[Rfam]
RNA sequence: UUCUUAUCCAGAGAGGCGGAGGGACUGGCCCUUUGAUGCCCGGCAACCAUCGAAUCAAUCUAAUGAUUGACGAGAACGGUGCCAAUUCCUGUAGGAUGGUGACAUCCUAAGAGAUGAGAG
Numbered sequence: 001u002u003c004u005u006a007u008c009c010a011g012a013g014a015g016g017c018g019g020a021g022g023g024a025c026u027g028g029c030c031c032u033u034u035g036a037u038g039c040c041c042g043g044c045a046a047c048c049a050u051c052g053a054a055u056c057a058a059u060c061u062a063a064u065g066a067u068u069g070a071c072g073a074g075a076a077c078g079g080u081g082c083c084a085a086u087u088c089c090u091g092u093a094g095g096a097u098g099g100u101g102a103c104a105u106c107c108u109a110a111g112a113g114a115u116g117a118g119a120g
Base pairs, nucleotide, nucleotide: 001120002119003118004117005116006115007114008113013041015040016039017038021031022030023029025091027089028088042083043082044081045080047079048078050073051072052071087112092109093108094107095106096105097104
A member of the RNA family "SAM riboswitch aptamer (S box leader)" from Halobacillus halophilus, 120 nucleotides long.
The family's consensus secondary structure is taken from published work.
The match comes from Rfam's covariance-model search (86 bits).
Taxonomically the source falls in Halobacillus halophilus (Bacteria, Bacillati, Bacilli, Bacillaceae).